[Rfam]
Plastid-psbM 3UTR RNA: an 80-nucleotide RNA from Gossypium anomalum. The source organism's lineage runs through Eukaryota, eudicotyledons, Gunneridae, Pentapetalae and Gossypium. Rfam describes the family as follows. Plastid psbM is a non-coding RNA (ncRNA) recognised in plastids. It was found in the three prime untranslated region (3UTR) of psbM gene, its 3UTR location suggests a role in transcript maturation. Pairs were carried over by alignment from the consensus structure, which was predicted with LocARNA.

RNA sequence: AACUCGAUAGUAUGGUAGAAAAAAUAUGAAUAUUUCUACCAUACUAUCUAUAUUUAUUAUUGUAAUGUAGAAAUAUAAGG
Numbered sequence: 001a002a003c004u005c006g007a008u009a010g011u012a013u014g015g016u017a018g019a020a021a022a023a024a025u026a027u028g029a030a031u032a033u034u035u036c037u038a039c040c041a042u043a044c045u046a047u048c049u050a051u052a053u054u055u056a057u058u059a060u061u062g063u064a065a066u067g068u069a070g071a072a073a074u075a076u077a078a079g080g
Stems, first nucleotide, its partner, number of pairs: 006048016023031001